[Rfam]
RNA sequence: AUGGAAUCUAUGAUGUGAUCAAGUAAAUAAGAAUUGUGAAACAGAAAAUAUAGUAGUUGCUGAGAGCUAUAUCACCGCUUCUUAUUGAAACCUACCACGGAGAUGCAAGUAUGUCUUGCCGAGUACGUUCUCGUUACAAACGUUUAGAGGGUUAAAAAAUUUUAUUUUAACUGAACUAAGGUGGUACCACGUCAAUUAUGCGCUAAGACGUCCUUAAU
Dot-bracket structure: ......((......(((........((((((.....(((.........((((((...........)))))))))......)))))).........)))...))..((((.....)))).(((........)))..................((((((.......)))))).......((((.......(((((.............)))))))))...